[Rfam]
RNA sequence: UGGCGCCCAACAUGGGGCCUGGAUACUGGGGACAGCGUGAGGGACACGACGGAGGAAAAAGGGGUGUGCACCCGCUCAAAUAAUUCGGAGAUGCCACGGGAGCCUACCACGACCGAGCUGAAGUUAAGUUGGUCAUUCAAUCAUGGGGCAAGAAUUGAGUCAGCAUCAGAAAUAUGUAAUACAGUUAAAAGAAGCUUUACAGGCAAGAGGAGUAAAGGUUACAACUGAGGAUUUAUUUCAUUUCUUUGAUUUUGUGAAAGACAUCUGCCCAU
Numbered sequence: 001u002g003g004c005g006c007c008c009a010a011c012a013u014g015g016g017g018c019c020u021g022g023a024u025a026c027u028g029g030g031g032a033c034a035g036c037g038u039g040a041g042g043g044a045c046a047c048g049a050c051g052g053a054g055g056a057a058a059a060a061g062g063g064g065u066g067u068g069c070a071c072c073c074g075c076u077c078a079a080a081u082a083a084u085u086c087g088g089a090g091a092u093g094c095c096a097c098g099g100g101a102g103c104c105u106a107c108c109a110c111g112a113c114c115g116a117g118c119u120g121a122a123g124u125u126a127a128g129u130u131g132g133u134c135a136u137u138c139a140a141u142c143a144u145g146g147g148g149c150a151a152g153a154a155u156u157g158a159g160u161c162a163g164c165a166u167c168a169g170a171a172a173u174a175u176g177u178a179a180u181a182c183a184g185u186u187a188a189a190a191g192a193a194g195c196u197u198u199a200c201a202g203g204c205a206a207g208a209g210g211a212g213u214a215a216a217g218g219u220u221a222c223a224a225c226u227g228a229g230g231a232u233u234u235a236u237u238u239c240a241u242u243u244c245u246u247u248g249a250u251u252u253u254g255u256g257a258a259a260g261a262c263a264u265c266u267g268c269c270c271a272u
Stems, first nucleotide, its partner, number of pairs: 006031003013025002036048003082125003085121002092115002095111001098108002134148001136147004156199003159195002207247006216234005257272001260269001262267001
RNA: Mason-Pfizer monkey virus packaging signal
Organism: Nannospalax galili